[Rfam]
RNA sequence: UUCUUAUCGAGAGUGGUGGAGGGACUGGCCCAACGAAGCCCGGCAACCGAUAGUCUUUGAAACUAUGCGGUGCCAAUUCCUGCAAUGUUCAAUCAAGAACAUUGAAAGAUAAGAA
Numbered sequence: 001u002u003c004u005u006a007u008c009g010a011g012a013g014u015g016g017u018g019g020a021g022g023g024a025c026u027g028g029c030c031c032a033a034c035g036a037a038g039c040c041c042g043g044c045a046a047c048c049g050a051u052a053g054u055c056u057u058u059g060a061a062a063c064u065a066u067g068c069g070g071u072g073c074c075a076a077u078u079c080c081u082g083c084a085a086u087g088u089u090c091a092a093u094c095a096a097g098a099a100c101a102u103u104g105a106a107a108g109a110u111a112a113g114a115a
Base pairs, nucleotide, nucleotide: 001115002114003113004112005111006110007109008108013041015040016039017038021031022030023029025082027080028079042074043073044072045071047070048069050066051065052064053063078107083104084103085102086101087100088099089098090097